[Rfam]
RNA sequence: AGUAUUGAAAGGCAAAGCCGUUGAAAGACGGUGACGCAAAGCUAGAGGGUCUCACUCACAUAGGUAUGUGACAGAUAGCCAGCUGCUGGU
Numbered sequence: 001a002g003u004a005u006u007g008a009a010a011g012g013c014a015a016a017g018c019c020g021u022u023g024a025a026a027g028a029c030g031g032u033g034a035c036g037c038a039a040a041g042c043u044a045g046a047g048g049g050u051c052u053c054a055c056u057c058a059c060a061u062a063g064g065u066a067u068g069u070g071a072c073a074g075a076u077a078g079c080c081a082g083c084u085g086c087u088g089g090u
Stems, first nucleotide, its partner, number of pairs: 012037002017032006040084004047080002049076003056071006
Dot-bracket structure: ...........((...((((((....))))))...))..((((...(((((....((((((....))))))..)))..))))))......
c-di-GMP-I riboswitch aptamer: a 90-nucleotide sequence from Butyrivibrio hungatei. The organism belongs to Butyrivibrio, within Bacteria.